[Rfam]
RNA: ssNA-helicase RNA
RNA sequence: UGCCAUAAGGUUAGUAUUACCUUAUGGCAUAUAUGUAGCAUGUAGCA
Numbered sequence: 001u002g003c004c005a006u007a008a009g010g011u012u013a014g015u016a017u018u019a020c021c022u023u024a025u026g027g028c029a030u031a032u033a034u035g036u037a038g039c040a041u042g043u044a045g046c047a
Stems, first nucleotide, its partner, number of pairs: 001029010